[Rfam]
RNA sequence: CCGCCCGUCGCUACUACCGAUUGAAUGGCUUAGUGAGGCUUCAGGAUUGGCGCCGCGGGAGGGGCAACUUUCCCAUGGCGCGGAGAAUUUAGACAAACUUGGUCAUUUAGAGGUCGUAAAAGUCGUAACAAGGUUUCCGUAGGUGAACCUGCGGAAGGAUCAUUA
Numbered sequence: 001c002c003g004c005c006c007g008u009c010g011c012u013a014c015u016a017c018c019g020a021u022u023g024a025a026u027g028g029c030u031u032a033g034u035g036a037g038g039c040u041u042c043a044g045g046a047u048u049g050g051c052g053c054c055g056c057g058g059g060a061g062g063g064g065c066a067a068c069u070u071u072c073c074c075a076u077g078g079c080g081c082g083g084a085g086a087a088u089u090u091a092g093a094c095a096a097a098c099u100u101g102g103u104c105a106u107u108u109a110g111a112g113g114u115c116g117u118a119a120a121a122g123u124c125g126u127a128a129c130a131a132g133g134u135u136u137c138c139g140u141a142g143g144u145g146a147a148c149c150u151g152c153g154g155a156a157g158g159a160u161c162a163u164u165a
Stems, first nucleotide, its partner, number of pairs: 001132001003129001006125002009122001012118003016114003021109001023108008032099003037094001039092002043088001047084002050081006057074001058072004134157010

A member of the RNA family "Eukaryotic small subunit ribosomal RNA" from Pichia californica, 165 nucleotides of a longer RNA.
It scores 1750 bits against the family's covariance model.
The source organism's lineage runs through Eukaryota, Dikarya, Ascomycota, saccharomyceta and Pichia.
A reference for the family is Yusupov et al. (2001), "Crystal structure of the ribosome at 5.5 A resolution", Science.